[Rfam]
RNA sequence: AAGCAACACUCUGUGGCAGAUGAUCAAAACUCUGGCACAAUUUGAGCUUGCUACAGCAAGAAAGCCUAACCUGUUCCGCUGUUCUCGUCUCCGCGAGACAAGCCGUUAUACAGGCUUAAACAGU
Numbered sequence: 001a002a003g004c005a006a007c008a009c010u011c012u013g014u015g016g017c018a019g020a021u022g023a024u025c026a027a028a029a030c031u032c033u034g035g036c037a038c039a040a041u042u043u044g045a046g047c048u049u050g051c052u053a054c055a056g057c058a059a060g061a062a063a064g065c066c067u068a069a070c071c072u073g074u075u076c077c078g079c080u081g082u083u084c085u086c087g088u089c090u091c092c093g094c095g096a097g098a099c100a101a102g103c104c105g106u107u108a109u110a111c112a113g114g115c116u117u118a119a120a121c122a123g124u
Stems, first nucleotide, its partner, number of pairs: 009046003012039004017034004062117006072110003077105002080102001085098002088095001